[Rfam]
RNA sequence: ACCUGGAUCAAGCCCAGGAAUAUGGUGUCUCAAAGCUGGAUGGGCCAUAUGCUUAACCAAGACAAGAUCUCUUUCUCUCCAACACUGUUGCCAACUCAUGAUUCUCAUGACCUAUGCUGGGAGAGCUAUGGGCUAGGAGUCAGAGGACCUCUGACUUUGCAAAUAAUUGCUAG
Numbered sequence: 001a002c003c004u005g006g007a008u009c010a011a012g013c014c015c016a017g018g019a020a021u022a023u024g025g026u027g028u029c030u031c032a033a034a035g036c037u038g039g040a041u042g043g044g045c046c047a048u049a050u051g052c053u054u055a056a057c058c059a060a061g062a063c064a065a066g067a068u069c070u071c072u073u074u075c076u077c078u079c080c081a082a083c084a085c086u087g088u089u090g091c092c093a094a095c096u097c098a099u100g101a102u103u104c105u106c107a108u109g110a111c112c113u114a115u116g117c118u119g120g121g122a123g124a125g126c127u128a129u130g131g132g133c134u135a136g137g138a139g140u141c142a143g144a145g146g147a148c149c150u151c152u153g154a155c156u157u158u159g160c161a162a163a164u165a166a167u168u169g170c171u172a173g
Base pairs, nucleotide, nucleotide: 011171012170013169018164025158027156030154031153032152034150035149046087047086052137053136054135055134060073061072075125076124077123078122079121096110097109098108099107100106101105111146112145113144115142116141118139
Notes
The record is a 173-nucleotide RNA sequence from Orcinus orca, which matches "Hovlinc ribozyme (hominin vlincRNA-located)" in Rfam. Hovlinc is a recently evolved class of self-cleaving ribozyme found in a very long non coding RNA (vlincRNA) in hominins, including humans (genus Homo), and chimpanzees and bonobos (genus Pan), but missing in gorillas (genus Gorilla). The sequence is in the family's curated seed alignment. Pairs were carried over by alignment from the consensus structure, which is taken from published work. The source organism's lineage runs through Eukaryota, Eumetazoa, Mammalia, Theria and Orcinus. The literature on the family includes a 2021 paper in Nat Chem Biol by Chen et al., "Hovlinc is a recently evolved class of ribozyme found in human lncRNA".